A member of the RNA family "RNase MRP" from Helobdella robusta, 235 nucleotides long. The organism belongs to Helobdella, within Eukaryota. The family's consensus secondary structure is taken from published work. The family's RNA type in Rfam is ribozyme.
[Rfam]
RNA sequence: CGGCCGGCGAACCCGUAAGGAAGACACAAACGAGUAAUUUAUUGCUCACAUAAAUCUUCUGGAAAAGUCCCCGGACACUUAGCAGAGAUGUUAAGUUUAACACUGAAACAAUGCCUCAUUGUCGCCUUAAUGGCUAAGACCGUAAGAGAGCCAGCGAUAGAGGCAUCAUUUGGUCUAAGCAAAGUCAUUCGGGUGGUUGGUGUCAGCGCCAUCUCAACGGGGCUUAACGUCGGGU
Numbered sequence: 001c002g003g004c005c006g007g008c009g010a011a012c013c014c015g016u017a018a019g020g021a022a023g024a025c026a027c028a029a030a031c032g033a034g035u036a037a038u039u040u041a042u043u044g045c046u047c048a049c050a051u052a053a054a055u056c057u058u059c060u061g062g063a064a065a066a067g068u069c070c071c072c073g074g075a076c077a078c079u080u081a082g083c084a085g086a087g088a089u090g091u092u093a094a095g096u097u098u099a100a101c102a103c104u105g106a107a108a109c110a111a112u113g114c115c116u117c118a119u120u121g122u123c124g125c126c127u128u129a130a131u132g133g134c135u136a137a138g139a140c141c142g143u144a145a146g147a148g149a150g151c152c153a154g155c156g157a158u159a160g161a162g163g164c165a166u167c168a169u170u171u172g173g174u175c176u177a178a179g180c181a182a183a184g185u186c187a188u189u190c191g192g193g194u195g196g197u198u199g200g201u202g203u204c205a206g207c208g209c210c211a212u213c214u215c216a217a218c219g220g221g222g223c224u225u226a227a228c229g230u231c232g233g234g235u
Stems, first nucleotide, its partner, number of pairs: 003235003007231001011194005019060006032047006065225003069222004081092004095109004113164005122157003131153004141146001196213001198211004
Dot-bracket structure: ..(((.(...(((((...((((((.......((((((....)))))).......))))))....[[[.[[[[........((((....))))..((((.......))))...(((((....(((......((((......(....)...)))).)))..))))).........................))))).(.((((......)))).).....]]]]]]].....).)))